[Rfam]
RNA sequence: CUUUGUAUUCUUCCACAGCUUUCUUGAACUGCAACUACGUCUUAGAUGAUGCAUGUGAGCGGUUUUAAGUAUCAAUUGCGGUUCAAUAAAGCUGUGGGAAGAUACAAAUA
Number, nucleotide and partner (000 for none) at each position: 001c000002u000003u107004u106005g105006u104007a103008u000009u000010c000011u000012u000013c097014c096015a095016c000017a093018g092019c091020u090021u089022u088023c000024u086025u085026g084027a083028a000029c081030u080031g079032c078033a077034a000035c000036u000037a000038c000039g000040u000041c000042u000043u000044a000045g000046a000047u000048g000049a000050u000051g000052c000053a000054u000055g000056u000057g000058a000059g000060c000061g000062g000063u000064u000065u000066u000067a000068a000069g000070u000071a000072u000073c000074a000075a000076u000077u033078g032079c031080g030081g029082u000083u027084c026085a025086a024087u000088a022089a021090a020091g019092c018093u017094g000095u015096g014097g013098g000099a000100a000101g000102a000103u007104a006105c005106a004107a003108a000109u000110a000
Annotation:
This 110-nucleotide sequence from Gossypium raimondii belongs to the Rfam family "MIR396 microRNA precursor family". For this family Rfam cites "Computational identification of plant microRNAs and their targets, including a stress-induced miRNA" (Jones-Rhoades and Bartel, Mol Cell, 2004). Its family is annotated with miRNA-mediated post-transcriptional gene silencing and RISC complex in the Gene Ontology.